[Rfam]
RNA: Plastid-ycf2 5UTR RNA
Organism: Vanilla planifolia
RNA sequence: AAGCAUCUAGUAAGAGUUGAACAUAUGAUUUUGCCAAUUAUAAGUUGGGCACUUUAACCAUUCAGCUAUGGAUGC
Numbered sequence: 001a002a003g004c005a006u007c008u009a010g011u012a013a014g015a016g017u018u019g020a021a022c023a024u025a026u027g028a029u030u031u032u033g034c035c036a037a038u039u040a041u042a043a044g045u046u047g048g049g050c051a052c053u054u055u056a057a058c059c060a061u062u063c064a065g066c067u068a069u070g071g072a073u074g075c
Stems, first nucleotide, its partner, number of pairs: 003075006010026003014022001040069003044066006